About this RNA
The record is a 107-nucleotide RNA from Paraprevotella clara, which matches "Bacteroidales small SRP" in Rfam. NCBI's taxonomy places the organism under Bacteria, Bacteroidota, Bacteroidia, Bacteroidales, Paraprevotella clara. Rfam classes the family as a non-coding RNA gene. Pairs were carried over by alignment from the consensus structure, which is taken from published work.
RNA sequence: CGCAAACGGGAAAGUCCUGUACGGCCAGCUCCCUUCGAAUCCCCCAGGGCUUGAUCGCAGCAAGGGUAGUUGGUUGUAGCGGCGCGAUGCAGUAAGCUUUCCCACCC
Numbered sequence: 001c002g003c004a005a006a007c008g009g010g011a012a013a014g015u016c017c018u019g020u021a022c023g024g025c026c027a028g029c030u031c032c033c034u035u036c037g038a039a040u041c042c043c044c045c046a047g048g049g050c051u052u053g054a055u056c057g058c059a060g061c062a063a064g065g066g067u068a069g070u071u072g073g074u075u076g077u078a079g080c081g082g083c084g085c086g087a088u089g090c091a092g093u094a095a096g097c098u099u100u101c102c103c104a105c106c107c
Base pairs, nucleotide, nucleotide: 008103009102010101011100012099013098014097015096017092018091019090020089021088022086023085024083025082